RNA sequence: GACUUAUCAAGAGCGGCUGAGGGGACAGGCCCUGUGAAGCCCGACAACCUGCGCGAGAGCGUAAGGUGCCAAAUCCUGCGGGAAACCGGAAGAUAAGAG
Numbered sequence: 001g002a003c004u005u006a007u008c009a010a011g012a013g014c015g016g017c018u019g020a021g022g023g024g025a026c027a028g029g030c031c032c033u034g035u036g037a038a039g040c041c042c043g044a045c046a047a048c049c050u051g052c053g054c055g056a057g058a059g060c061g062u063a064a065g066g067u068g069c070c071a072a073a074u075c076c077u078g079c080g081g082g083a084a085a086c087c088g089g090a091a092g093a094u095a096a097g098a099g
Stems, first nucleotide, its partner, number of pairs: 003097006013042001015041003021032003026078004043070001045068002048066002050063004074091001079088003
A member of the RNA family "SAM riboswitch aptamer (S box leader)" from Faecalibacterium prausnitzii, 99 nucleotides long. The family's consensus secondary structure is taken from published work. The source organism's lineage runs through Bacteria, Bacillota, Clostridia, Faecalibacterium and Faecalibacterium prausnitzii. Rfam's curators write: The SAM riboswitch is found upstream of a number of genes which code for proteins involved in methionine or cysteine biosynthesis in Gram-positive bacteria. Rfam's curators put it in the seed alignment.